[Rfam]
RNA sequence: ACCUAAGGUAGAGGUGCUAUUAAUAAAGAGUACUUAUUAUGAGUUUGCAAGCGUUGAUUAAUAAGGAAAGGUAUUAUGGCCGAAGAUUUGAAUUGUGCAAAGGUUCAUUUCUGGGUAUGCAUAAAAUAUAUGUAUAACUGUCACGAAAGUGGAGAGCUACAAGGAUU
Numbered sequence: 001a002c003c004u005a006a007g008g009u010a011g012a013g014g015u016g017c018u019a020u021u022a023a024u025a026a027a028g029a030g031u032a033c034u035u036a037u038u039a040u041g042a043g044u045u046u047g048c049a050a051g052c053g054u055u056g057a058u059u060a061a062u063a064a065g066g067a068a069a070g071g072u073a074u075u076a077u078g079g080c081c082g083a084a085g086a087u088u089u090g091a092a093u094u095g096u097g098c099a100a101a102g103g104u105u106c107a108u109u110u111c112u113g114g115g116u117a118u119g120c121a122u123a124a125a126a127u128a129u130a131u132g133u134a135u136a137a138c139u140g141u142c143a144c145g146a147a148a149g150u151g152g153a154g155a156g157c158u159a160c161a162a163g164g165a166u167u
Stems, first nucleotide, its partner, number of pairs: 008160004016080005023074003033065007084112003089107006113139002116136008141152004